Rfam assigns this 169-nucleotide sequence from Mikania micrantha to the family "small nucleolar RNA snoR127". The family's consensus secondary structure was predicted with RNAalifold. A search with the family's covariance model found it, with a score of 71 bits. By type it is a C/D-box small nucleolar RNA. The literature on the family includes a 2009 paper in Nucleic Acids Res by Chen and Wu, "Mining small RNA sequencing data: a new approach to identify small nucleolar RNAs in Arabidopsis".
RNA sequence: CUGGGAUGAUGCAACUUAGCCAAAUCAGACAUUGAUGUGCUCCAUAGGAAGGCUGUUUUAAGCAACUUGCGUCAGUUGUAUGCAUAUUACUGUGCUAGUUUUUUCCCCUUUGUAGAAGCGCGUCAUCUCUCUGAUGAAAAACACAGAGAUUGGUUUCUAGCUGACCAGA
Numbered sequence: 001c002u003g004g005g006a007u008g009a010u011g012c013a014a015c016u017u018a019g020c021c022a023a024a025u026c027a028g029a030c031a032u033u034g035a036u037g038u039g040c041u042c043c044a045u046a047g048g049a050a051g052g053c054u055g056u057u058u059u060a061a062g063c064a065a066c067u068u069g070c071g072u073c074a075g076u077u078g079u080a081u082g083c084a085u086a087u088u089a090c091u092g093u094g095c096u097a098g099u100u101u102u103u104u105c106c107c108c109u110u111u112g113u114a115g116a117a118g119c120g121c122g123u124c125a126u127c128u129c130u131c132u133g134a135u136g137a138a139a140a141a142c143a144c145a146g147a148g149a150u151u152g153g154u155u156u157c158u159a160g161c162u163g164a165c166c167a168g169a
Base pairs, nucleotide, nucleotide: 001168002167003166004165